[Rfam]
RNA sequence: UAGGGAUGUCAGGGUUUGGCUCCCCUCCCUGAACCCAGGGUAACUCUUAAGGUAGAGGGGAU
Dot-bracket structure: .......[[[.[[[[[.[[..((((((]].].]]]]..]]].............))))))..
The family of this 62-nucleotide sequence from Dipodomys ordii is "Gag/pol translational readthrough site".
The match comes from Rfam's covariance-model search (69 bits).
The family's RNA type in Rfam is cis-regulatory element.
On this family, see ten Dam et al., Virus Genes 1990: "RNA pseudoknots: translational frameshifting and readthrough on viral RNAs".